[Rfam]
RNA sequence: UAUGGUCCUCGGUAGUGGUUUCCAGAUGUAAGCAUCUGUGAACUUCGAUCGAAGAUUCAUU
Numbered sequence: 001u002a003u004g005g006u007c008c009u010c011g012g013u014a015g016u017g018g019u020u021u022c023c024a025g026a027u028g029u030a031a032g033c034a035u036c037u038g039u040g041a042a043c044u045u046c047g048a049u050c051g052a053a054g055a056u057u058c059a060u061u
Stems, first nucleotide, its partner, number of pairs: 002060003005056003009052005017044005023038006
Annotation:
Rfam assigns this 61-nucleotide RNA to the family "Actino-pnp RNA". By type it is a cis-regulatory element. It scores 63 bits against the family's covariance model.